[Rfam]
Nucleotides: 113
Base pairs, nucleotide, nucleotide: 003037004036005035006034007033008032009031013030014029015028016027017026018025041072043070044069045068047066048065050063051062054059075108076107077106078105079104080103081102082101083100084099085098086097087096088095
Number, partner (000 for none) and nucleotide at each position: 001000g002000g003037u004036u005035c006034c007033u008032u009031u010000a011000a012000u013030u014029u015028a016027g017026c018025c019000c020000a021000g022000u023000g024000a025018g026017g027016c028015u029014a030013a031009g032008a033007a034006g035005g036004a037003g038000g039000a040000a041072a042000a043070u044069u045068g046000a047066u048065u049000a050063a051062a052000a053000g054059a055000u056000a057000u058000a059054u060000a061000g062051u063050u064000a065048a066047g067000g068045u069044a070043a071000a072041u073000a074000a075108g076107g077106c078105g079104g080103g081102u082101a083100u084099a085098u086097c087096c088095a089000u090000g091000a092000a093000a094000g095088u096087g097086g098085g099084u100083a101082u102081a103080c104079c105078c106077g107076c108075c109000u110000u111000u112000u113000u

Rfam assigns this 113-nucleotide RNA sequence from Dictyoglomus turgidum to the family "PyrR binding site". For this family Rfam cites "Molecular recognition of pyr mRNA by the Bacillus subtilis attenuation regulatory protein PyrR" (Bonner et al., Nucleic Acids Res, 2001). Pairs were carried over by alignment from the consensus structure, which is taken from published work. By type it is a cis-regulatory element. A search with the family's covariance model found it, with a score of 60 bits.